[Rfam]
RNA sequence: CUCGGUUACGGUGACAUGGUGCCAUCUACCGUAAUGGGUAAGAUCGUCGGUGGUAUCUGCUCACUGUCCGGUGUGCUGGUGAUCGCGUUGCCUGUGCCAGUCAUCGUCAGCAAC
Numbered sequence: 001c002u003c004g005g006u007u008a009c010g011g012u013g014a015c016a017u018g019g020u021g022c023c024a025u026c027u028a029c030c031g032u033a034a035u036g037g038g039u040a041a042g043a044u045c046g047u048c049g050g051u052g053g054u055a056u057c058u059g060c061u062c063a064c065u066g067u068c069c070g071g072u073g074u075g076c077u078g079g080u081g082a083u084c085g086c087g088u089u090g091c092c093u094g095u096g097c098c099a100g101u102c103a104u105c106g107u108c109a110g111c112a113a114c
Stems, first nucleotide, its partner, number of pairs: 002113001004111001008107004013102003018097001021095002037077004050062001
Notes
Shown here is a 114-nucleotide RNA from Ancylostoma duodenale, a member of the family "Potassium channel RNA editing signal". The organism belongs to Ancylostoma, within Eukaryota. Gene Ontology term of the family: adenosine to inosine editing. The family's RNA type in Rfam is cis-regulatory element.